Notes: Poribacteria-1 RNA: a 107-nucleotide sequence from Candidatus Poribacteria bacterium WGA-4E.
[Rfam]
RNA sequence: GCCUCCUCGCUUCCAUAGAAAGGGGACGGGGCAGAUCGCAAGUGCUACAACCGAGCGGUGGUAUCUGUCAAACUAAGCAGCCACUGCACAUCAAUUGACUAAGGAGA
Numbered sequence: 001g002c003c004u005c006c007u008c009g010c011u012u013c014c015a016u017a018g019a020a021a022g023g024g025g026a027c028g029g030g031g032c033a034g035a036u037c038g039c040a041a042g043u044g045c046u047a048c049a050a051c052c053g054a055g056c057g058g059u060g061g062u063a064u065c066u067g068u069c070a071a072a073c074u075a076a077g078c079a080g081c082c083a084c085u086g087c088a089c090a091u092c093a094a095u096u097g098a099c100u101a102a103g104g105a106g107a
Stems, first nucleotide, its partner, number of pairs: 001027001003025005030069006055087007
Record summary:
Rfam classes the family as a small RNA. Lineage of the source: Bacteria > Bacteria candidate phyla > Candidatus Poribacteria.